[Rfam]
RNA sequence: GACCCGAUAGUAUGGUAGAAAGUAAUAUAUUUACUACCAUACUAUCUAUUUUUCUAUUUUUGUUAUUUUGGUAUACUAGU
Numbered sequence: 001g002a003c004c005c006g007a008u009a010g011u012a013u014g015g016u017a018g019a020a021a022g023u024a025a026u027a028u029a030u031u032u033a034c035u036a037c038c039a040u041a042c043u044a045u046c047u048a049u050u051u052u053u054c055u056a057u058u059u060u061u062g063u064u065a066u067u068u069u070g071g072u073a074u075a076c077u078a079g080u
Base pairs, nucleotide, nucleotide: 006046007045008044009043010042011041012040013039014038015037016036017035018034020032021031022030023029
Rfam assigns this 80-nucleotide sequence from Salix dunnii to the family "Plastid-psbM 3UTR RNA". Plastid psbM is a non-coding RNA (ncRNA) recognised in plastids. It was found in the three prime untranslated region (3UTR) of psbM gene, its 3UTR location suggests a role in transcript maturation. Taxonomically the source falls in Salix (Eukaryota, Streptophyta, Streptophytina, Mesangiospermae). The match comes from Rfam's covariance-model search (54 bits).